[Rfam]
RNA sequence: UCCGGUCCUCGGUAGUGGCCUCCGGAACCCGGAAGGGAGUCCGUGGGCCUCGAUCGAAGGCCGUC
Numbered sequence: 001u002c003c004g005g006u007c008c009u010c011g012g013u014a015g016u017g018g019c020c021u022c023c024g025g026a027a028c029c030c031g032g033a034a035g036g037g038a039g040u041c042c043g044u045g046g047g048c049c050u051c052g053a054u055c056g057a058a059g060g061c062c063g064u065c
Base pairs, nucleotide, nucleotide: 003063004062005061006060007059009057010056011055012054013053017049018048019047020046021045023043024042025041026040028039030037
Rfam assigns this 65-nucleotide RNA from Georgenia soli to the family "Actino-pnp RNA". The family's RNA type in Rfam is cis-regulatory element. NCBI's taxonomy places the organism under Bacteria, Actinomycetota, Actinomycetes, Allobogoriellales, Georgenia.